[Rfam]
RNA: Vertebrate telomerase RNA
RNA sequence: UGUGCUGGGGUGUGCAGGCCCUGUGGCCAACUAACCCUAAUGGCGGCUGCGCCCCUCACGCUCGCCCGCUGUUUUACUCGCUGACUUUCAGCGGGCCAAGGGAGCGGCCAUGGGAAAGGGGGGGGAGGGGGAAAAGAGUUCCGGCCUCAAAAAAAGCCAGCGAGGGGGAUCCACACCCCGGCCCACCCUGGGGUCCCUGUCCCUCCUCCGUAACAGGGGAUGGUCCCGCCUUCGCCCCUCGUAGAGGCCGCGGUCGGCAGGCUCAGCGCCGCUACCGCCGCGAAGAGUUCGUCUCUGUCAGCCUCGGCGGAGGCCGGGACCAAAGGGCCGGCCCGCCCACCCUGGGCAGCCGGGGGACCCCAGCAGAGCAAAACGGGCGCGGCGCCGCCGGGCGCUGAGCAGCCGCGGCUCCCUGAAACGUGGAGUGCGCGGUGGGCGCCGCCCCGACACCC
Numbered sequence: 001u002g003u004g005c006u007g008g009g010g011u012g013u014g015c016a017g018g019c020c021c022u023g024u025g026g027c028c029a030a031c032u033a034a035c036c037c038u039a040a041u042g043g044c045g046g047c048u049g050c051g052c053c054c055c056u057c058a059c060g061c062u063c064g065c066c067c068g069c070u071g072u073u074u075u076a077c078u079c080g081c082u083g084a085c086u087u088u089c090a091g092c093g094g095g096c097c098a099a100g101g102g103a104g105c106g107g108c109c110a111u112g113g114g115a116a117a118g119g120g121g122g123g124g125g126a127g128g129g130g131g132a133a134a135a136g137a138g139u140u141c142c143g144g145c146c147u148c149a150a151a152a153a154a155a156g157c158c159a160g161c162g163a164g165g166g167g168g169a170u171c172c173a174c175a176c177c178c179c180g181g182c183c184c185a186c187c188c189u190g191g192g193g194u195c196c197c198u199g200u201c202c203c204u205c206c207u208c209c210g211u212a213a214c215a216g217g218g219g220a221u222g223g224u225c226c227c228g229c230c231u232u233c234g235c236c237c238c239u240c241g242u243a244g245a246g247g248c249c250g251c252g253g254u255c256g257g258c259a260g261g262c263u264c265a266g267c268g269c270c271g272c273u274a275c276c277g278c279c280g281c282g283a284a285g286a287g288u289u290c291g292u293c294u295c296u297g298u299c300a301g302c303c304u305c306g307g308c309g310g311a312g313g314c315c316g317g318g319a320c321c322a323a324a325g326g327g328c329c330g331g332c333c334c335g336c337c338c339a340c341c342c343u344g345g346g347c348a349g350c351c352g353g354g355g356g357a358c359c360c361c362a363g364c365a366g367a368g369c370a371a372a373a374c375g376g377g378c379g380c381g382g383c384g385c386c387g388c389c390g391g392g393c394g395c396u397g398a399g400c401a402g403c404c405g406c407g408g409c410u411c412c413c414u415g416a417a418a419c420g421u422g423g424a425g426u427g428c429g430c431g432g433u434g435g436g437c438g439c440c441g442c443c444c445c446g447a448c449a450c451c452c
Base pairs, nucleotide, nucleotide: 004182005181006180007179008178009177010176011175012174013173014172016170019168020167021166022165051105052104054102055101064096065095066094067093068092069091070090071089080161081160082159083158085156086154087153088152188363189362190361191360192359193358194357222321223320224319225318226317227316228315231311232310233309234308235307249282250281251280252279253278255277256276257275260270261269262268284296285295286294287293375444376443377442378441381440382439383438384437385436386435403432404431405430406429407428410425412423413422